[Rfam]
RNA sequence: GAUUGUUCUCAGGGCGGGGCGAAAUUCCCCACCGGCGGUUAUAGCCCGCGAGCGGCCCCAGUUGGGGUGUCCAGCAGAUACUGGUGAAAUUCCAGAGCCGACGGUCAUAGUCCGGAUGAGAGAGAGCUUCG
Numbered sequence: 001g002a003u004u005g006u007u008c009u010c011a012g013g014g015c016g017g018g019g020c021g022a023a024a025u026u027c028c029c030c031a032c033c034g035g036c037g038g039u040u041a042u043a044g045c046c047c048g049c050g051a052g053c054g055g056c057c058c059c060a061g062u063u064g065g066g067g068u069g070u071c072c073a074g075c076a077g078a079u080a081c082u083g084g085u086g087a088a089a090u091u092c093c094a095g096a097g098c099c100g101a102c103g104g105u106c107a108u109a110g111u112c113c114g115g116a117u118g119a120g121a122g123a124g125a126g127c128u129u130c131g
Base pairs, nucleotide, nucleotide: 005127006126007125008124009123010122017029018028019027031111032110033100034099035049036048037047038046044098045097052075053074079096081095082094083093084092102114103113104112
Dot-bracket structure: ....((((((......(((.......))).[[((((((.....[[))))..((....................))...(.((((.......)))))]])).(((.....]]))).......))))))....

Record summary
FMN riboswitch aptamer (RFN element): a 131-nucleotide RNA sequence from Octadecabacter temperatus. The base pairs follow the family's consensus structure, which is taken from published work. Rfam describes the family as follows. The RFN element is a highly conserved domain that is found frequently in the 5'-untranslated regions of prokaryotic mRNAs that encode for flavin mononucleotide (FMN) biosynthesis and transport proteins. A search with the family's covariance model found it, with a score of 105 bits.